[Rfam]
RNA sequence: GGCAAGCGCACUCUGUGUCACAUCGAUAUCCAGCCUCAUGUGAUGACAAUUUGUAAGCUUGCUAAAACAAAGCGGUGCUUCGCUUAUCCAUGUGGCAGCGAAUUUAAUCCCAGCUGCCGCAUUGAAUUCGAACUCCACACUGA
Dot-bracket structure: .((((((..((..((((((((((.((.........))))))))).)))....))..)))))).....((....((.(.(.((....((.((((((((.(.............).)))))))).))...))).))).....)).

The record is a 143-nucleotide RNA from Drosophila rhopaloa, which matches "Small nucleolar RNA psi18S-841/snoR66" in Rfam.
The family is grouped with related families in Rfam's "SNORA28 clan".
The family's RNA type in Rfam is H/ACA-box small nucleolar RNA.
Rfam describes the family as follows. psi18S-841 is a member of the H/ACA class of snoRNA. This family is responsible for guiding the modification of uridine 841 in Drosophila 18S rRNA to pseudouridine.